Nucleotides: 145
Stems, first nucleotide, its partner, number of pairs: 011130001013128002019028001030125006040049002050110003058085004088104004
Number, partner (000 for none) and nucleotide at each position: 001000u002000c003000a004000c005000a006000a007000g008000c009000a010000c011130c012000a013128c014127c015000g016000a017000c018000a019028c020000a021000c022000a023000c024000a025000a026000g027000g028019g029000a030125a031124c032123c033122g034121g035120g036000g037000a038000a039000c040049c041048a042000c043000c044000u045000a046000c047000u048041u049040g050110g051109g052108g053000u054000g055000a056000a057000u058085c059084g060083g061082g062000c063000a064000g065000c066000u067000u068000c069000c070000a071000g072000g073000c074000g075000g076000a077000a078000g079000c080000c081000g082061c083060u084059c085058g086000u087000a088104g089103g090102a091101g092000a093000c094000c095000u096000u097000c098000c099000u100000g101091c102090u103089c104088c105000g106000a107000a108052c109051c110050c111000g112000u113000c114000a115000g116000c117000u118000a119000a120035c121034c122033c123032g124031g125030u126000a127014g128013g129000c130011g131000a132000g133000a134000a135000g136000g137000a138000a139000g140000g141000a142000a143000a144000g145000g
This 145-nucleotide RNA from Streptomyces tardus belongs to the Rfam family "c-di-AMP riboswitch aptamer (ydaO/yuaA leader)".
Rfam links the family to the GO terms cyclic-di-AMP binding and regulation of gene expression.
Taxonomically the source falls in Streptomyces (Bacteria, Bacillati, Kitasatosporales, Streptomycetaceae).